[Rfam]
RNA sequence: AUGGCGUUUUCUGAAAAGCCACAAUAGAGUAAGAA
Numbered sequence: 001a002u003g004g005c006g007u008u009u010u011c012u013g014a015a016a017a018g019c020c021a022c023a024a025u026a027g028a029g030u031a032a033g034a035a
Base pairs, nucleotide, nucleotide: 002021003020004019005018010034011033012032

The record is a 35-nucleotide RNA from Kordia sp. SMS9, which matches "DUF805b RNA" in Rfam. The family's consensus secondary structure is taken from published work. The organism belongs to Kordia, within Bacteria. Rfam classes the family as a cis-regulatory element.